[Rfam]
This 55-nucleotide sequence from Caenimonas aquaedulcis belongs to the Rfam family "chrB-b RNA".
RNA sequence: CGGGGACACGAGCAGACUCCCCGAACCCCAGACGGCUCCGCCGUCCAAGCUCUGC
Numbered sequence: 001c002g003g004g005g006a007c008a009c010g011a012g013c014a015g016a017c018u019c020c021c022c023g024a025a026c027c028c029c030a031g032a033c034g035g036c037u038c039c040g041c042c043g044u045c046c047a048a049g050c051u052c053u054g055c
Stems, first nucleotide, its partner, number of pairs: 001023006012055005031045005
Dot-bracket structure: ((((((.....[[[[[.)))))).......(((((.....))))).....]]]]]
The match comes from Rfam's covariance-model search (59 bits). The family's consensus secondary structure is taken from published work.